RNA: small nucleolar RNA snoR17
Organism: Plasmodium falciparum
RNA sequence: UUUUUUAUGAUGAAAAUAAAAAAGAAAAGCUGAUAAAAAGUUGAUGAUUUUUAUGCUAUUUCACCAAGAUCUCUGAAAAA
Numbered sequence: 001u002u003u004u005u006u007a008u009g010a011u012g013a014a015a016a017u018a019a020a021a022a023a024g025a026a027a028a029g030c031u032g033a034u035a036a037a038a039a040g041u042u043g044a045u046g047a048u049u050u051u052u053a054u055g056c057u058a059u060u061u062c063a064c065c066a067a068g069a070u071c072u073c074u075g076a077a078a079a080a
Stems, first nucleotide, its partner, number of pairs: 002080004